[Rfam]
RNA sequence: CUAUAACGCGAGCCGAAACGAUAUACGUACGGGGGAUCUUUUGGAGCUGUGCAGCUCCGUUCCCGUCAUCUGAUGUUCAUCACAUAUGACGGGUUCGCCGCGCUCUGGCGCUGGGGUGAAUCGCAAUUCAUGCGUAGGGUUGAACUCCUCAAUCCGAAUCCGACAACUAACCUCGCAGGCCGCAUGCGAUGACGA
Dot-bracket structure: ...........(((...(((.....))).(((((....(.........................................................................)(((.....((((.....))))..((((...........))))...))).........)))))..)))...............
RNA: c-di-AMP riboswitch aptamer (ydaO/yuaA leader)